[Rfam]
RNA sequence: GGGGAAGCGCCGGAUCCUGGGCUGUGUCCCCCAGCGCCCUGGGCUCCGGGGCCUGCGCUGCUGGAAUCGCGCUCCCGGGCUGUGCAGCUCCCU
Numbered sequence: 001g002g003g004g005a006a007g008c009g010c011c012g013g014a015u016c017c018u019g020g021g022c023u024g025u026g027u028c029c030c031c032c033a034g035c036g037c038c039c040u041g042g043g044c045u046c047c048g049g050g051g052c053c054u055g056c057g058c059u060g061c062u063g064g065a066a067u068c069g070c071g072c073u074c075c076c077g078g079g080c081u082g083u084g085c086a087g088c089u090c091c092c093u
Base pairs, nucleotide, nucleotide: 001093002092003091004090005089009085010084011082012081013080016078017077019075020074021073023071024070025069026068027065028064031063032060033059034058035057036056037055041053043052044051045050
The family of this 93-nucleotide sequence from Vulpes vulpes is "mir-8799 microRNA precursor family". A search with the family's covariance model found it, with a score of 78 bits. The family has 7 seed sequences and 20,638 matches in Rfam 15.1. NCBI's taxonomy places the organism under Eukaryota, Teleostomi, Tetrapoda, Mammalia, Vulpes.